Rfam assigns this 372-nucleotide RNA from Thermobifida fusca to the family "transfer-messenger RNA". The sequence is in the family's curated seed alignment.
RNA sequence: GGGGGUGAUCGGUUUCGACUUCGAUGGUUGUUGUAGGGGAAGCGGGCCGAGGAGAGCGGACGCAGCCUCGUUAAAAAUGCGACCGCGAAAAAAUAAGUGCCAACUCUAAGCGCACUGAGUUCGCUCUCGCUGCUUGAUCGAGAGUGACUCUGUCGGCCUGGGAGCGUCUCCGACCCAGUGUCCGGCAUCGUUGAGGAGACUUGCCGGUCAGAUCAGGCCACAGGAUCUGACUGGGACAUGCUCUGUGGCUGGGCCUGUCGGCGACUUGUCUGCGUGAGCGCCGGGGCCGAGGAGAACGCUGAGCAGACUGCGCCCGGAGAAGCCCUGCUGCAGCAUCGAAGGACGCGGGUUCGAUUCCCGCCACCUCCACGC
Numbered sequence: 001g002g003g004g005g006u007g008a009u010c011g012g013u014u015u016c017g018a019c020u021u022c023g024a025u026g027g028u029u030g031u032u033g034u035a036g037g038g039g040a041a042g043c044g045g046g047c048c049g050a051g052g053a054g055a056g057c058g059g060a061c062g063c064a065g066c067c068u069c070g071u072u073a074a075a076a077a078u079g080c081g082a083c084c085g086c087g088a089a090a091a092a093a094u095a096a097g098u099g100c101c102a103a104c105u106c107u108a109a110g111c112g113c114a115c116u117g118a119g120u121u122c123g124c125u126c127u128c129g130c131u132g133c134u135u136g137a138u139c140g141a142g143a144g145u146g147a148c149u150c151u152g153u154c155g156g157c158c159u160g161g162g163a164g165c166g167u168c169u170c171c172g173a174c175c176c177a178g179u180g181u182c183c184g185g186c187a188u189c190g191u192u193g194a195g196g197a198g199a200c201u202u203g204c205c206g207g208u209c210a211g212a213u214c215a216g217g218c219c220a221c222a223g224g225a226u227c228u229g230a231c232u233g234g235g236a237c238a239u240g241c242u243c244u245g246u247g248g249c250u251g252g253g254c255c256u257g258u259c260g261g262c263g264a265c266u267u268g269u270c271u272g273c274g275u276g277a278g279c280g281c282c283g284g285g286g287c288c289g290a291g292g293a294g295a296a297c298g299c300u301g302a303g304c305a306g307a308c309u310g311c312g313c314c315c316g317g318a319g320a321a322g323c324c325c326u327g328c329u330g331c332a333g334c335a336u337c338g339a340a341g342g343a344c345g346c347g348g349g350u351u352c353g354a355u356u357c358c359c360g361c362c363a364c365c366u367c368c369a370c371g372c
Stems, first nucleotide, its partner, number of pairs: 001368007019341008028332001030331002033328006043316005048070005056086004123145007151187006158178004166200006205233009216250006252288005263279001268308004275301002345361005